RNA: small nucleolar RNA snoR134
Organism: Lupinus angustifolius
RNA sequence: ACGCAUGUUGCAUCCCCGGGCUUCUCUUAGAGAUCGAUGACGCGAAAACCCCAAUGCUCGUGCAAAAUUCACGUCGUUCGUGUUGCAGUUCAGCCCUAAUUUUUCAUGGUUGUGAUCUGUGUCAAAGCAACGGCUAAAUUC
Number, nucleotide and partner (000 for none) at each position: 001a000002c000003g063004c062005a061006u060007g059008u000009u000010g057011c056012a000013u000014c000015c000016c000017c000018g051019g050020g049021c000022u047023u045024c044025u000026c042027u000028u000029a000030g000031a000032g000033a000034u000035c000036g000037a000038u000039g000040a000041c000042g026043c000044g024045a023046a000047a022048a000049c020050c019051c018052c000053a000054a000055u000056g011057c010058u000059c007060g006061u005062g004063c003064a000065a000066a000067a000068u000069u000070c000071a000072c000073g134074u133075c132076g131077u130078u129079c000080g000081u124082g123083u000084u121085g120086c119087a118088g117089u000090u000091c000092a111093g110094c109095c000096c000097u000098a000099a000100u000101u000102u000103u000104u000105c000106a000107u000108g000109g094110u093111u092112g000113u000114g000115a000116u000117c088118u087119g086120u085121g084122u000123c082124a081125a000126a000127g000128c000129a078130a077131c076132g075133g074134c073135u000136a000137a000138a000139u000140u000141c000